The record is a 47-nucleotide RNA from Aporhodopirellula rubra, which matches "Guanidine-II riboswitch aptamer (mini-ykkC)" in Rfam. Rfam links the family to the GO term regulation of gene expression. The organism belongs to Aporhodopirellula, within Bacteria.

RNA sequence: AAGUGGGGACGACCUCACCGCUCCAUACUCGAUCAGGGACGGCCCUG
Numbered sequence: 001a002a003g004u005g006g007g008g009a010c011g012a013c014c015u016c017a018c019c020g021c022u023c024c025a026u027a028c029u030c031g032a033u034c035a036g037g038g039a040c041g042g043c044c045c046u047g
Stems, first nucleotide, its partner, number of pairs: 003018006034047005